Background: A member of the RNA family "Bacterial RNase P class A" from Methyloprofundus sedimenti, 369 nucleotides long. It scores 349 bits against the family's covariance model. The family's RNA type in Rfam is ribozyme.
RNA sequence: AGAGUUGGUCAGACAGUCGCUGUAUUACUUGAACUUUAGUAAUACAGAGGAAAGUCCGGGCUCCACAGGGCAAGGUACCAGAUAACAUCUGGGAGGCGCAAGUCUACGGAAAGUGCAGCAGAAAAUAAACCGCCCAGCCCAUGAAACCAAGUUUCAUGGGCUGGGUAAGGGUGAAAUGGUGCGGUAAGAGCGCACCGCGUGACUGGUAACAGAAGCGGCAUGGUAAACCCUACCUGGAGCAAGAUCAAAUAGAGGGGCAGACGCGCGGCCCGCGCGGCUCCUGGGUAGAUCGCUUGAGUUAUAAGGUGACUUAUGGCCUAGAUGAAUGACUGUCCAAGACAAAACCCGGCUUAUCGACCAACUCUAACU
Numbered sequence: 001a002g003a004g005u006u007g008g009u010c011a012g013a014c015a016g017u018c019g020c021u022g023u024a025u026u027a028c029u030u031g032a033a034c035u036u037u038a039g040u041a042a043u044a045c046a047g048a049g050g051a052a053a054g055u056c057c058g059g060g061c062u063c064c065a066c067a068g069g070g071c072a073a074g075g076u077a078c079c080a081g082a083u084a085a086c087a088u089c090u091g092g093g094a095g096g097c098g099c100a101a102g103u104c105u106a107c108g109g110a111a112a113g114u115g116c117a118g119c120a121g122a123a124a125a126u127a128a129a130c131c132g133c134c135c136a137g138c139c140c141a142u143g144a145a146a147c148c149a150a151g152u153u154u155c156a157u158g159g160g161c162u163g164g165g166u167a168a169g170g171g172u173g174a175a176a177u178g179g180u181g182c183g184g185u186a187a188g189a190g191c192g193c194a195c196c197g198c199g200u201g202a203c204u205g206g207u208a209a210c211a212g213a214a215g216c217g218g219c220a221u222g223g224u225a226a227a228c229c230c231u232a233c234c235u236g237g238a239g240c241a242a243g244a245u246c247a248a249a250u251a252g253a254g255g256g257g258c259a260g261a262c263g264c265g266c267g268g269c270c271c272g273c274g275c276g277g278c279u280c281c282u283g284g285g286u287a288g289a290u291c292g293c294u295u296g297a298g299u300u301a302u303a304a305g306g307u308g309a310c311u312u313a314u315g316g317c318c319u320a321g322a323u324g325a326a327u328g329a330c331u332g333u334c335c336a337a338g339a340c341a342a343a344a345c346c347c348g349g350c351u352u353a354u355c356g357a358c359c360a361a362c363u364c365u366a367a368c369u
Stems, first nucleotide, its partner, number of pairs: 001365010011354001012334007020047009052352003056349005061239004068271004073235005078092005093107001094105004108230002113228002115224002130170002132166015178196006197219001198217003203212003243291004253282006262276005298317008